[Rfam]
Rfam assigns this 128-nucleotide sequence from Diaminobutyricimonas aerilata to the family "FMN riboswitch aptamer (RFN element)".
RNA sequence: CACGUGCUCCGGGGUCGGUGAAAAUCCGAGCCGGCGGUCAUAGUCCGCGAACCCCGCCACCAGCGGUGGGGCCGAACCGGUGGAAUUCCGGUACCGACGGUUAAAGUCCGGAUGGGAGGAAGCACGCG
Numbered sequence: 001c002a003c004g005u006g007c008u009c010c011g012g013g014g015u016c017g018g019u020g021a022a023a024a025u026c027c028g029a030g031c032c033g034g035c036g037g038u039c040a041u042a043g044u045c046c047g048c049g050a051a052c053c054c055c056g057c058c059a060c061c062a063g064c065g066g067u068g069g070g071g072c073c074g075a076a077c078c079g080g081u082g083g084a085a086u087u088c089c090g091g092u093a094c095c096g097a098c099g100g101u102u103a104a105a106g107u108c109c110g111g112a113u114g115g116g117a118g119g120a121a122g123c124a125c126g127c128g
Base pairs, nucleotide, nucleotide: 003126004125005124006123007122008121009119010118016028017027018026030107031106032096033095034048035047036046037045043094044093052071053070076092077091078090079089080088098110099109100108
Record summary:
Lineage of the source: Bacteria > Bacillati > Actinomycetota > Microbacteriaceae > Diaminobutyricimonas.